This 132-nucleotide sequence from Clostridium acetobutylicum belongs to the Rfam family "Ribosomal protein L10 leader". This family is a putative r-protein leader autoregulatory structure found in B. subtilis and other low-GC Gram-positive bacteria. It is located in the 5' untranslated regions of mRNAs encoding ribosomal proteins L10 and L12 (rplJ-rplL). A Rho-independent transcription terminator structure that is probably involved in regulation is included at the 3' end. It is one of the family's seed sequences. A reference for the family is Zengel and Lindahl (1994), "Diverse mechanisms for regulating ribosomal protein synthesis in Escherichia coli", Prog Nucleic Acid Res Mol Biol. The source organism's lineage runs through Bacteria, Bacillati, Eubacteriales, Clostridium and Clostridium acetobutylicum.
RNA sequence: AUUAAAUAUGUAAAUACUCCGUAGAAAGUAGGUGCGUGAGCGUAACGGAUAACCAACCUACCGAGGAUUCCAAUAUAUAUGAAAGUAUAUGGUCUCUUCGUACGUCUGCGGAGGGGCCUUUAGUUUAUUAUA
Numbered sequence: 001a002u003u004a005a006a007u008a009u010g011u012a013a014a015u016a017c018u019c020c021g022u023a024g025a026a027a028g029u030a031g032g033u034g035c036g037u038g039a040g041c042g043u044a045a046c047g048g049a050u051a052a053c054c055a056a057c058c059u060a061c062c063g064a065g066g067a068u069u070c071c072a073a074u075a076u077a078u079a080u081g082a083a084a085g086u087a088u089a090u091g092g093u094c095u096c097u098u099c100g101u102a103c104g105u106c107u108g109c110g111g112a113g114g115g116g117c118c119u120u121u122a123g124u125u126u127a128u129u130a131u132a
Stems, first nucleotide, its partner, number of pairs: 028061006034041002092117010